[Rfam]
The family of this 103-nucleotide sequence is "c-di-GMP-II-GAG riboswitch aptamer". Rfam's curators put it in the seed alignment.
RNA sequence: CGGCCACCGGGACGCAUGGAUCCUCGGACCGCACGACGGUCGCCCCCCCAGCUGCACCGCUGGGACGUCCGAGGGGAGCGAGUGGCGAGACCGACCCGGUCCG
Dot-bracket structure: (((.(..((((.(((......((((((((........[[[[[[[......................))))))))...)))...]]]]]..]]..))))).)))